[Rfam]
RNA sequence: GCCCUUGAUGAUGAUGAUCUGAUCUCCCAUAUCCUUGCUGGUUUGGAUUUUGAUUAUAAUCCUGUUGUGUCCUCGAUUACGGGACGCACCGAGUUUGUUUCCUUUGGUGAAGUCUAUGCGCAGCUGCUGAGUUUCGAGC
Numbered sequence: 001g002c003c004c005u006u007g008a009u010g011a012u013g014a015u016g017a018u019c020u021g022a023u024c025u026c027c028c029a030u031a032u033c034c035u036u037g038c039u040g041g042u043u044u045g046g047a048u049u050u051u052g053a054u055u056a057u058a059a060u061c062c063u064g065u066u067g068u069g070u071c072c073u074c075g076a077u078u079a080c081g082g083g084a085c086g087c088a089c090c091g092a093g094u095u096u097g098u099u100u101c102c103u104u105u106g107g108u109g110a111a112g113u114c115u116a117u118g119c120g121c122a123g124c125u126g127c128u129g130a131g132u133u134u135c136g137a138g139c
Stems, first nucleotide, its partner, number of pairs: 004138005088108006

Rfam assigns this 139-nucleotide RNA to the family "Small nucleolar RNA Z247". The family has 8 seed sequences and 7,071 matches in Rfam 15.1.